[Rfam]
RNA sequence: GCUGGGUGUGGUGGGGCACACCUAUAGUCCAGCCACUCGGGAGGCUGAGGCAGGAGGAUCGCUUGAGCCCAGGAGUUCUGGGCUGUAGUGUGCUAUGCCAAUCAGGUGUUCACACUAAGUUCAGCAUCAACAUGGUGGCCUCCUGGGAGCAGGGGACCACCAGGUUGACUAAGGAGGGGUGAACCGGCCUCUGCUGGAAACGGAGGUCAAAACUCCCGUGCUGAUUAGUAGUGGGAUUGUGCCUGUGAAGAGCCACUGAACUCUAGCCUGAGCAACACAACGAGACCCCAUCUCUA
Numbered sequence: 001g002c003u004g005g006g007u008g009u010g011g012u013g014g015g016g017c018a019c020a021c022c023u024a025u026a027g028u029c030c031a032g033c034c035a036c037u038c039g040g041g042a043g044g045c046u047g048a049g050g051c052a053g054g055a056g057g058a059u060c061g062c063u064u065g066a067g068c069c070c071a072g073g074a075g076u077u078c079u080g081g082g083c084u085g086u087a088g089u090g091u092g093c094u095a096u097g098c099c100a101a102u103c104a105g106g107u108g109u110u111c112a113c114a115c116u117a118a119g120u121u122c123a124g125c126a127u128c129a130a131c132a133u134g135g136u137g138g139c140c141u142c143c144u145g146g147g148a149g150c151a152g153g154g155g156a157c158c159a160c161c162a163g164g165u166u167g168a169c170u171a172a173g174g175a176g177g178g179g180u181g182a183a184c185c186g187g188c189c190u191c192u193g194c195u196g197g198a199a200a201c202g203g204a205g206g207u208c209a210a211a212a213c214u215c216c217c218g219u220g221c222u223g224a225u226u227a228g229u230a231g232u233g234g235g236a237u238u239g240u241g242c243c244u245g246u247g248a249a250g251a252g253c254c255a256c257u258g259a260a261c262u263c264u265a266g267c268c269u270g271a272g273c274a275a276c277a278c279a280a281c282g283a284g285a286c287c288c289c290a291u292c293u294c295u296a
Stems, first nucleotide, its partner, number of pairs: 001045003004023007028042003047294004053288002059283003063279001067273002070270004078266005084260001086258005092253003096249001098247001103245007110235002113233005119226001121224007128167004133162006140155006169173001176216005186208004194203003
Notes
The record is a 296-nucleotide sequence from Colobus angolensis, which matches "Metazoan signal recognition particle RNA" in Rfam. Gene Ontology terms of the family: SRP-dependent cotranslational protein targeting to membrane, signal sequence recognition and signal recognition particle, endoplasmic reticulum targeting. The family's consensus secondary structure is taken from published work. It scores 216 bits against the family's covariance model. The family has 91 seed sequences and 383,523 matches in Rfam 15.1. By type it is a non-coding RNA gene.